[Rfam]
RNA sequence: UGAUCUCAGAUCAGGCAGGAUGACCCGCUGAACUUAAGCAUAUUAGUAAGCGGAGGAAAAGAAACUAACCAGGAUUCCCCUAGUAACGGCGAGUGAAGCGGGAUUAGCCCAAUAUUAGAAGCUGGUCGGCCCUGAGCCGGUCCCGCAUUGUAUAUUGAUGGGGCGAUGCCUAGUAGUAAGCCUUUCGGUCAAAGUUCCUUGGAACAGGACGUCAAAGAGGGUGAGAACCCCGUGCGUGGCCGAACGACAUACCAGCUUACUGCGUCUACGGUACGUCUCCUUAGAGUCGGAAUGUUUGGGAAUGCAUUCCAAAGCGGGUGGUAAACUCCAUCUAAGGCUAAAUACUGGCGAGAGACCGAUAGCGAACAAGUACCGUGAGGGAAAGUUGAAAAGCACUCUGGAGAGAGAGUCAAACAGUACGUGAAAUUGCUAGCAGGGAAA
Numbered sequence: 001u002g003a004u005c006u007c008a009g010a011u012c013a014g015g016c017a018g019g020a021u022g023a024c025c026c027g028c029u030g031a032a033c034u035u036a037a038g039c040a041u042a043u044u045a046g047u048a049a050g051c052g053g054a055g056g057a058a059a060a061g062a063a064a065c066u067a068a069c070c071a072g073g074a075u076u077c078c079c080c081u082a083g084u085a086a087c088g089g090c091g092a093g094u095g096a097a098g099c100g101g102g103a104u105u106a107g108c109c110c111a112a113u114a115u116u117a118g119a120a121g122c123u124g125g126u127c128g129g130c131c132c133u134g135a136g137c138c139g140g141u142c143c144c145g146c147a148u149u150g151u152a153u154a155u156u157g158a159u160g161g162g163g164c165g166a167u168g169c170c171u172a173g174u175a176g177u178a179a180g181c182c183u184u185u186c187g188g189u190c191a192a193a194g195u196u197c198c199u200u201g202g203a204a205c206a207g208g209a210c211g212u213c214a215a216a217g218a219g220g221g222u223g224a225g226a227a228c229c230c231c232g233u234g235c236g237u238g239g240c241c242g243a244a245c246g247a248c249a250u251a252c253c254a255g256c257u258u259a260c261u262g263c264g265u266c267u268a269c270g271g272u273a274c275g276u277c278u279c280c281u282u283a284g285a286g287u288c289g290g291a292a293u294g295u296u297u298g299g300g301a302a303u304g305c306a307u308u309c310c311a312a313a314g315c316g317g318g319u320g321g322u323a324a325a326c327u328c329c330a331u332c333u334a335a336g337g338c339u340a341a342a343u344a345c346u347g348g349c350g351a352g353a354g355a356c357c358g359a360u361a362g363c364g365a366a367c368a369a370g371u372a373c374c375g376u377g378a379g380g381g382a383a384a385g386u387u388g389a390a391a392a393g394c395a396c397u398c399u400g401g402a403g404a405g406a407g408a409g410u411c412a413a414a415c416a417g418u419a420c421g422u423g424a425a426a427u428u429g430c431u432a433g434c435a436g437g438g439a440a441a
Base pairs, nucleotide, nucleotide: 024055025053026052027051028050029049035042036041065072066071076103077102078101079100086094087093106339107338108337109336112155113154114153115152118149119148121146122145124143125142127140160280161279162277163276164275165274167273168272169271170270174262175261176260177259178258184244185243186242187241188240189239190238194210196209197208198207199206213217220230221229289310290309291308292307293306294305295304316333317332318331319330320329373380374379396407397406398405399404

Annotation
This 441-nucleotide part of an RNA from Thamnocephalis sphaerospora belongs to the Rfam family "Eukaryotic large subunit ribosomal RNA". A search with the family's covariance model found it, with a score of 3036 bits. The family's consensus secondary structure is taken from published work.